[Rfam]
RNA: mir-34 microRNA precursor family
Organism: Aquarana catesbeiana
RNA sequence: GUUUUUAGGCAGUGUAGUUAGCUGAUUGCUUCAGUAUAAAACUUGCAAUCACUAACUAGACUACCAUCAAAAC
Numbered sequence: 001g002u003u004u005u006u007a008g009g010c011a012g013u014g015u016a017g018u019u020a021g022c023u024g025a026u027u028g029c030u031u032c033a034g035u036a037u038a039a040a041a042c043u044u045g046c047a048a049u050c051a052c053u054a055a056c057u058a059g060a061c062u063a064c065c066a067u068c069a070a071a072a073c
Stems, first nucleotide, its partner, number of pairs: 002071003008065002011062003015058007023051007
Dot-bracket structure: .(((...((.(((.(((((((.(((((((...............)))))))))))))).))).))...)))..